[Rfam]
RNA sequence: UCCUUAAUAGGCAAACCAAUCGCGAGGUUGGGACGCAAAGCCAUGGGUCCAUGAGAACGUGGAUCGCCAGGUUACCGAAG
Numbered sequence: 001u002c003c004u005u006a007a008u009a010g011g012c013a014a015a016c017c018a019a020u021c022g023c024g025a026g027g028u029u030g031g032g033a034c035g036c037a038a039a040g041c042c043a044u045g046g047g048u049c050c051a052u053g054a055g056a057a058c059g060u061g062g063a064u065c066g067c068c069a070g071g072u073u074a075c076c077g078a079a080g
Stems, first nucleotide, its partner, number of pairs: 001080001003077001011036002016031006034066001039073004044069003047064003

Shown here is an 80-nucleotide RNA sequence from Novipirellula artificiosorum, a member of the family "c-di-GMP-I-GGC riboswitch aptamer". Taxonomically the source falls in Novipirellula (Bacteria, Pseudomonadati, Planctomycetota, Planctomycetia). Pairs were carried over by alignment from the consensus structure, which is taken from published work.